[Rfam]
RNA sequence: UAAGAAAAAAGAAUAGAUACUUAUAUAGGUUCAUAAUCGGUUGAACGUCUCUACCAGCUGCCGUAACAGCUGACUAUAAGUAAAAGCAGGGUAUGU
Numbered sequence: 001u002a003a004g005a006a007a008a009a010a011g012a013a014u015a016g017a018u019a020c021u022u023a024u025a026u027a028g029g030u031u032c033a034u035a036a037u038c039g040g041u042u043g044a045a046c047g048u049c050u051c052u053a054c055c056a057g058c059u060g061c062c063g064u065a066a067c068a069g070c071u072g073a074c075u076a077u078a079a080g081u082a083a084a085a086g087c088a089g090g091g092u093a094u095g096u
Stems, first nucleotide, its partner, number of pairs: 018082008029046005055072006